Shown here is a 46-nucleotide RNA from Eptatretus burgeri, a member of the family "Histone 3' UTR stem-loop". The mRNAs of metazoan histone genes lack a poly-A tail. 3' end processing occurs at a site between a highly conserved stem-loop (modelled by this family) and a purine rich region around 20 nts downstream (the histone downstream element, or HDE). The stem-loop is bound by a 31 kDa stem-loop binding protein (SLBP - also termed the histone hairpin binding protein, or HBP). Together with U7 snRNA binding of the HDE, SLBP binding nucleate s the formation of the processing complex. The histone 3' UTR stem-loop is also involved in nucleocytoplasmic transport of the mRNA, and in stability regulation and translation efficiency in the cytoplasm. The family's consensus secondary structure is taken from published work. A search with the family's covariance model found it, with a score of 34 bits.

RNA sequence: ACAAAGGCUCUUUUCAGAGCCACCCACCACUGUCACUUGAAAGGAG
Numbered sequence: 001a002c003a004a005a006g007g008c009u010c011u012u013u014u015c016a017g018a019g020c021c022a023c024c025c026a027c028c029a030c031u032g033u034c035a036c037u038u039g040a041a042a043g044g045a046g
Stems, first nucleotide, its partner, number of pairs: 006021006
Dot-bracket structure: .....((((((....)))))).........................
Lineage of the source: Eukaryota > Opisthokonta > Metazoa > Myxini > Eptatretus.